Plant small nucleolar RNA U3: a 217-nucleotide RNA from Solanum commersonii. Pairs were carried over by alignment from the consensus structure, which is taken from published work. Rfam classes the family as a C/D-box small nucleolar RNA. The family is grouped with related families in Rfam's "U3 clan". About the family: Small nucleolar RNAs (snoRNAs) are involved in the processing and modification of rRNA in the nucleolus. A search with the family's covariance model found it, with a score of 183 bits.
[Rfam]
RNA sequence: ACGACCUUACUUGAACAGGAUCUGUUCUAUAGGCUUGUACCACUGUAUCCUUGAUUUCUAAGGAGACAGGAAACCAAUUCUGGUUGAUGACGCAUGGCCAUGUGACCAGAGCGUGAUUAACAGCCAACCAUUGCUUGUCGAGCUGUGGUUGCAGUAGAUGAUCGUUCUUAGACCCUGAUCUCAGGCCUAGGAUGGUCCCAUGUCUGUCUGACAGACU
Numbered sequence: 001a002c003g004a005c006c007u008u009a010c011u012u013g014a015a016c017a018g019g020a021u022c023u024g025u026u027c028u029a030u031a032g033g034c035u036u037g038u039a040c041c042a043c044u045g046u047a048u049c050c051u052u053g054a055u056u057u058c059u060a061a062g063g064a065g066a067c068a069g070g071a072a073a074c075c076a077a078u079u080c081u082g083g084u085u086g087a088u089g090a091c092g093c094a095u096g097g098c099c100a101u102g103u104g105a106c107c108a109g110a111g112c113g114u115g116a117u118u119a120a121c122a123g124c125c126a127a128c129c130a131u132u133g134c135u136u137g138u139c140g141a142g143c144u145g146u147g148g149u150u151g152c153a154g155u156a157g158a159u160g161a162u163c164g165u166u167c168u169u170a171g172a173c174c175c176u177g178a179u180c181u182c183a184g185g186c187c188u189a190g191g192a193u194g195g196u197c198c199c200a201u202g203u204c205u206g207u208c209u210g211a212c213a214g215a216c217u
Stems, first nucleotide, its partner, number of pairs: 001038002003035001005033003013027006043069004048064006079215004097204001099202004104197005110166004120155002123152002127149005133143004168190004174185004